This 117-nucleotide RNA sequence from Thalictrum thalictroides belongs to the Rfam family "mir-399 microRNA precursor family". Gene Ontology terms of the family: RISC complex and miRNA-mediated post-transcriptional gene silencing. For this family Rfam cites "Computational Identification of Plant MicroRNAs and Their Targets, Including a Stress-Induced miRNA" (Jones-Rhoades and Bartel, Mol Cell, 2004). It scores 68 bits against the family's covariance model. Rfam's curators write: mir-399 was identified in both Arabidopsis thaliana and Oryza sativa computationally and was later experimentally verified. mir-399 is thought to target mRNAs coding for a phosphatase transporter. The mature sequence is excised from the 3' arm of the hairpin. NCBI's taxonomy places the organism under Eukaryota, Streptophytina, Ranunculaceae, Thalictroideae, Thalictrum.

RNA sequence: AGAAGCAUUACAGGGCAAUACCUCCUCUGGCAGUCGGUCGUCAUAUUAGAUGUCUACUUCUGACGUACUAUUCAUGGCGUGCAUAUUGCCAAAGGAGAUUUGCCCGGCAAUUCUCUU
Dot-bracket structure: ....(.(((.(.((((((...((((..(((((((..................................................)))))))..))))..)))))).).))).)....
Numbered sequence: 001a002g003a004a005g006c007a008u009u010a011c012a013g014g015g016c017a018a019u020a021c022c023u024c025c026u027c028u029g030g031c032a033g034u035c036g037g038u039c040g041u042c043a044u045a046u047u048a049g050a051u052g053u054c055u056a057c058u059u060c061u062g063a064c065g066u067a068c069u070a071u072u073c074a075u076g077g078c079g080u081g082c083a084u085a086u087u088g089c090c091a092a093a094g095g096a097g098a099u100u101u102g103c104c105c106g107g108c109a110a111u112u113c114u115c116u117u
Stems, first nucleotide, its partner, number of pairs: 005113001007111003011107001013105006022097004028091007